[Rfam]
The family of this 58-nucleotide sequence is "Ma3 gene ribosomal frameshift signal".
It is annotated as a frameshift element.
The base pairs follow the family's consensus structure, which is taken from published work.
For this family Rfam cites "A functional -1 ribosomal frameshift signal in the human paraneoplastic Ma3 gene" (Wills et al., J Biol Chem, 2006).
RNA sequence: GGGAAGACGGCAGUGGGCCCGGGCUGGGUCAGCCCGGGCCCACUUGAGGAUCGGCUCA
Numbered sequence: 001g002g003g004a005a006g007a008c009g010g011c012a013g014u015g016g017g018c019c020c021g022g023g024c025u026g027g028g029u030c031a032g033c034c035c036g037g038g039c040c041c042a043c044u045u046g047a048g049g050a051u052c053g054g055c056u057c058a
Base pairs, nucleotide, nucleotide: 014042015041016040017039018038019037020036021035022034023033024032026057027056028055029054030053

The match comes from Rfam's covariance-model search (36 bits).